[Rfam]
RNA sequence: CUGAGUACUUGGCCCUGAGAACUGAAUUCCAUAGAUGGUGGUCAUGAAGUAGCUCAUCUAUGGACUCAGUUCUUCUGGCAGUGUGCUCUUU
Numbered sequence: 001c002u003g004a005g006u007a008c009u010u011g012g013c014c015c016u017g018a019g020a021a022c023u024g025a026a027u028u029c030c031a032u033a034g035a036u037g038g039u040g041g042u043c044a045u046g047a048a049g050u051a052g053c054u055c056a057u058c059u060a061u062g063g064a065c066u067c068a069g070u071u072c073u074u075c076u077g078g079c080a081g082u083g084u085g086c087u088c089u090u091u
Base pairs, nucleotide, nucleotide: 009081011079013077018073019072020071021070022069023068024067025066033059034058035057036056
The record is a 91-nucleotide sequence from Electrophorus electricus, which matches "mir-146 microRNA precursor family" in Rfam. The base pairs follow the family's consensus structure, which was predicted with WAR. The organism belongs to Electrophorus, within Eukaryota. Rfam links the family to the GO terms miRNA-mediated post-transcriptional gene silencing and RISC complex. Rfam 15.1 lists 1,617 matches to the family in 642 species. A reference for the family is Lagos-Quintana et al. (2002), "Identification of tissue-specific microRNAs from mouse", Curr Biol.